[Rfam]
Shown here is a 585-nucleotide part of an RNA from Pelodera punctata, a member of the family "Eukaryotic small subunit ribosomal RNA".
The base pairs follow the family's consensus structure, which is taken from published work.
NCBI's taxonomy places the organism under Eukaryota, Bilateria, Protostomia, Rhabditoidea, Pelodera.
The literature on the family includes a 2001 paper in Science by Yusupov et al., "Crystal structure of the ribosome at 5.5 A resolution".

RNA sequence: UGACGGAAGCGCACCACCAGGAGUGGAGCCUGUGGCUUAAUUUGACUCAACACGGAGAAACUUACCCAGCCAUCACGUUUAGUGGAUGGACCUGCGAAAGUGAGCGUUCUUGAUUUUACGAAUAGUGGUGCAUGGUCGAUUUUAGUUCGUGGGUUGAUCUCUCAGCUUAAUUGCGUUAACGAACAAGAUACAGAAACCCCAAAAGGUUAAUCCAAGUGGGUUCAACGGUUACUUCCAAAUUUCUAUGAAAGUUGUGCUAUAUCAGGUCUGUACGCUCUACGAUGGCUGGGGCCGCACGCGUGCUACACUUAGGUCCACAGCGAGUUCUUAAUCAGAGCGGGUAAACCCACUCUGACGAACCAAUGCAAUGGACCUUCGUGGAUUGGGAUUGUAAUUUGCACGUUUGCCGGCUAAUUCGAUAUCGUGAACAAGGAAUUCCUAGUAAGCGUUCAGUCAUCAUCUUACACUGAAUGCGUCCCUGCGCUUUGUACACACCGCCCGUCGCUACCGGGGACUCUGAGCUGCGGCGAGAAGAAUUUUUUUCUGAUCGUCCGCGGCUUGAACCCGGUAAAAGUCGUAACAAGG
Numbered sequence: 001u002g003a004c005g006g007a008a009g010c011g012c013a014c015c016a017c018c019a020g021g022a023g024u025g026g027a028g029c030c031u032g033u034g035g036c037u038u039a040a041u042u043u044g045a046c047u048c049a050a051c052a053c054g055g056a057g058a059a060a061c062u063u064a065c066c067c068a069g070c071c072a073u074c075a076c077g078u079u080u081a082g083u084g085g086a087u088g089g090a091c092c093u094g095c096g097a098a099a100g101u102g103a104g105c106g107u108u109c110u111u112g113a114u115u116u117u118a119c120g121a122a123u124a125g126u127g128g129u130g131c132a133u134g135g136u137c138g139a140u141u142u143u144a145g146u147u148c149g150u151g152g153g154u155u156g157a158u159c160u161c162u163c164a165g166c167u168u169a170a171u172u173g174c175g176u177u178a179a180c181g182a183a184c185a186a187g188a189u190a191c192a193g194a195a196a197c198c199c200c201a202a203a204a205g206g207u208u209a210a211u212c213c214a215a216g217u218g219g220g221u222u223c224a225a226c227g228g229u230u231a232c233u234u235c236c237a238a239a240u241u242u243c244u245a246u247g248a249a250a251g252u253u254g255u256g257c258u259a260u261a262u263c264a265g266g267u268c269u270g271u272a273c274g275c276u277c278u279a280c281g282a283u284g285g286c287u288g289g290g291g292c293c294g295c296a297c298g299c300g301u302g303c304u305a306c307a308c309u310u311a312g313g314u315c316c317a318c319a320g321c322g323a324g325u326u327c328u329u330a331a332u333c334a335g336a337g338c339g340g341g342u343a344a345a346c347c348c349a350c351u352c353u354g355a356c357g358a359a360c361c362a363a364u365g366c367a368a369u370g371g372a373c374c375u376u377c378g379u380g381g382a383u384u385g386g387g388a389u390u391g392u393a394a395u396u397u398g399c400a401c402g403u404u405u406g407c408c409g410g411c412u413a414a415u416u417c418g419a420u421a422u423c424g425u426g427a428a429c430a431a432g433g434a435a436u437u438c439c440u441a442g443u444a445a446g447c448g449u450u451c452a453g454u455c456a457u458c459a460u461c462u463u464a465c466a467c468u469g470a471a472u473g474c475g476u477c478c479c480u481g482c483g484c485u486u487u488g489u490a491c492a493c494a495c496c497g498c499c500c501g502u503c504g505c506u507a508c509c510g511g512g513g514a515c516u517c518u519g520a521g522c523u524g525c526g527g528c529g530a531g532a533a534g535a536a537u538u539u540u541u542u543u544c545u546g547a548u549c550g551u552c553c554g555c556g557g558c559u560u561g562a563a564c565c566c567g568g569u570a571a572a573a574g575u576c577g578u579a580a581c582a583a584g585g
Stems, first nucleotide, its partner, number of pairs: 001492002003489003007486007016476002020439005025306001027304003031300004035295002041056004065290007076120003089109002092106001094105002124278002127276004133272002135267003138263003145184006151160003165174002190255004195222003199219003205213002225246001227244002231240001311375006324361001335356001339352004385429001390424002394420003445468002448465002452462002495584001497581001500577002503574001506570007515561001519560009528550003533545004